[Rfam]
RNA: BsrG
Organism: Sporosarcina luteola
RNA sequence: AAGAGUAAUAGAAUAGGUGACUCAAGGGUGGUCGGCCAUUUCCCGUUAGGAGGGAGGUGGUCGUAUGACAGUAUUUGAAGCAUUAAUGCUCGCAUUUACAUUCACAGCAUUAAUCGUAGCAGUAUUGUCGUUCCACAAUAAAAAAUAAUCCAUCCUUGAGUGGUAGCUCAUAACGGAUGGAUUAUUUUUAUCUAGCCAGCUGAUCCCCUUGAAGGGAACCUAUUGCUAUUACUUACUUCAGACCGCCUAAUGUUACUAGCAUUGGGUG
Dot-bracket structure: (((((.(((.(..(.(((..((((((((.(((...(((.(((((.......))))).)))......(((((((......(..............).........(.............)...)))))))..................)))..)))))))).........(.(..............).).........))).)((((......))))........).))).))..))).....(.(((((((((...))))))))).)